[Rfam]
RNA sequence: UUGCAAGUUCAAGGUCAUAGCAGAAGUGCUCAUGCCACAGGUCUGUCAGAUUCCAACAAAUUUGCAAAUUCUGCU
Numbered sequence: 001u002u003g004c005a006a007g008u009u010c011a012a013g014g015u016c017a018u019a020g021c022a023g024a025a026g027u028g029c030u031c032a033u034g035c036c037a038c039a040g041g042u043c044u045g046u047c048a049g050a051u052u053c054c055a056a057c058a059a060a061u062u063u064g065c066a067a068a069u070u071c072u073g074c075u
Base pairs, nucleotide, nucleotide: 013043014042015040019075020074021073022072023071024070025069026038027037028036047064048063049062050061051060052059
Annotation
Mammalian CPEB3 ribozyme: a 75-nucleotide RNA from Alligator sinensis. The source organism's lineage runs through Eukaryota, Dipnotetrapodomorpha, Tetrapoda, Sauria and Alligator. From the family's description: The mammalian CPEB3 ribozyme is a self cleaving RNA located in the second intron of the CPEB3 gene which belongs to a family of genes regulating messenger RNA polyadenylation.